[Rfam]
RNA sequence: CCCUGCGUUCGAAAGUGAUCGCGGUCUCGCCCGUGGCCCGGUCAUUGAUAGCGCAGGGAGAGCGACGGCGGGAGCGUUUCCCGUGUGUGGCGGCGGCGCCUCCAUCCCCGCCAGACCCUGGUGCUCCCGCACA
Numbered sequence: 001c002c003c004u005g006c007g008u009u010c011g012a013a014a015g016u017g018a019u020c021g022c023g024g025u026c027u028c029g030c031c032c033g034u035g036g037c038c039c040g041g042u043c044a045u046u047g048a049u050a051g052c053g054c055a056g057g058g059a060g061a062g063c064g065a066c067g068g069c070g071g072g073a074g075c076g077u078u079u080c081c082c083g084u085g086u087g088u089g090g091c092g093g094c095g096g097c098g099c100c101u102c103c104a105u106c107c108c109c110g111c112c113a114g115a116c117c118c119u120g121g122u123g124c125u126c127c128c129g130c131a132c133a
Stems, first nucleotide, its partner, number of pairs: 001058009014046008023038004067130001069129007085116002088113002092108002